[Rfam]
A member of the RNA family "c-di-GMP-I riboswitch aptamer" from Alkalibaculum bacchi, 78 nucleotides long. Gene Ontology term of the family: cyclic-di-GMP binding. The base pairs follow the family's consensus structure, which is taken from published work. The match comes from Rfam's covariance-model search (67 bits).
RNA sequence: GUACUAUAAUGGCAAACUUAUCGAAAGGUAAGGACGCAAAGCUAUAGGGCCUUCGCAAGAUGGCAGCCAGUUGCUAUA
Numbered sequence: 001g002u003a004c005u006a007u008a009a010u011g012g013c014a015a016a017c018u019u020a021u022c023g024a025a026a027g028g029u030a031a032g033g034a035c036g037c038a039a040a041g042c043u044a045u046a047g048g049g050c051c052u053u054c055g056c057a058a059g060a061u062g063g064c065a066g067c068c069a070g071u072u073g074c075u076a077u078a
Base pairs, nucleotide, nucleotide: 012037013036017032018031019030020029021028022027040072041071042070043069047068048067049064050063051062